Shown here is a 108-nucleotide sequence from Bacillus sp. J14TS2, a member of the family "TPP riboswitch aptamer (THI element)". The source organism's lineage runs through Bacteria, Bacilli, Caryophanales, Bacillaceae and Bacillus.

RNA sequence: UACUACCACUAGGGGAGUCUUAAGAGACUGAGACACACGCAAUUAAGGUGUGGACCCUUGGAACCUGAUCUGGUUGGUACCAGCGUAGGGAAGUGGGGCCUGCUUUUU
Numbered sequence: 001u002a003c004u005a006c007c008a009c010u011a012g013g014g015g016a017g018u019c020u021u022a023a024g025a026g027a028c029u030g031a032g033a034c035a036c037a038c039g040c041a042a043u044u045a046a047g048g049u050g051u052g053g054a055c056c057c058u059u060g061g062a063a064c065c066u067g068a069u070c071u072g073g074u075u076g077g078u079a080c081c082a083g084c085g086u087a088g089g090g091a092a093g094u095g096g097g098g099c100c101u102g103c104u105u106u107u108u
Stems, first nucleotide, its partner, number of pairs: 006096005011058004017028004035051004064089004070083004